[Rfam]
RNA sequence: GAAGGAUGUUGGCCCUUCGGAGUCGCCCUGCGGGGGUGAUUUCAAACCGCCCACUGCCGCAUUAGCUGAAGACCGUUGUGGUGAGCGACGUGGGAAAAGGCGCACCAGAUGCGUCAGGU
Numbered sequence: 001g002a003a004g005g006a007u008g009u010u011g012g013c014c015c016u017u018c019g020g021a022g023u024c025g026c027c028c029u030g031c032g033g034g035g036g037u038g039a040u041u042u043c044a045a046a047c048c049g050c051c052c053a054c055u056g057c058c059g060c061a062u063u064a065g066c067u068g069a070a071g072a073c074c075g076u077u078g079u080g081g082u083g084a085g086c087g088a089c090g091u092g093g094g095a096a097a098a099g100g101c102g103c104a105c106c107a108g109a110u111g112c113g114u115c116a117g118g119u
Stems, first nucleotide, its partner, number of pairs: 001018005019043006026036004048118001050094005055088001056082002059079003063075001065073001099115006
The family of this 119-nucleotide RNA sequence from Saccharothrix sp. ALI-22-I is "Group II catalytic intron D1-D4-2". On this family, see Bonen and Vogel, Trends Genet 2001: "The ins and outs of group II introns". Group II introns are found in rRNA, tRNA and mRNA of organelles in fungi, plants and protists, and also in mRNA in bacteria. The base pairs follow the family's consensus structure.